The record is a 102-nucleotide RNA sequence from Halalkalibacter okhensis, which matches "Purine riboswitch aptamer" in Rfam.
It scores 82 bits against the family's covariance model.
Taxonomically the source falls in Halalkalibacter (Bacteria, Bacillati, Bacillota, Bacillaceae).
RNA sequence: AGUGUAUAAAGAAUCAACCUUCGUAUAUCCUUAGGAAUAUGGCCUAAGAGUCUCUACCGGAUUACCGUAAAAAAUCUGACUAUGAAGGCAGAAAGACGAACU
Numbered sequence: 001a002g003u004g005u006a007u008a009a010a011g012a013a014u015c016a017a018c019c020u021u022c023g024u025a026u027a028u029c030c031u032u033a034g035g036a037a038u039a040u041g042g043c044c045u046a047a048g049a050g051u052c053u054c055u056a057c058c059g060g061a062u063u064a065c066c067g068u069a070a071a072a073a074a075u076c077u078g079a080c081u082a083u084g085a086a087g088g089c090a091g092a093a094a095g096a097c098g099a100a101c102u
Base pairs, nucleotide, nucleotide: 018088019087020086021085022084023083024082025081030048031047032046033045034044035043058078059077060076061075062074063073